The family of this 51-nucleotide sequence from synthetic construct is "nadA riboswitch". The sequence is in the family's curated seed alignment. The family's consensus secondary structure is taken from published work. It is annotated as a small RNA.
RNA sequence: GCUUCAACAACCCCGUAGGUGGGGACGAAAGUCAGCGCACCUACUGGAGCC
Numbered sequence: 001g002c003u004u005c006a007a008c009a010a011c012c013c014c015g016u017a018g019g020u021g022g023g024g025a026c027g028a029a030a031g032u033c034a035g036c037g038c039a040c041c042u043a044c045u046g047g048a049g050c051c
Stems, first nucleotide, its partner, number of pairs: 001050006012037001013035001015044007022036001024033003
Dot-bracket structure: ((((((.....[[.((((((((.(((....))).])]))))))))))))).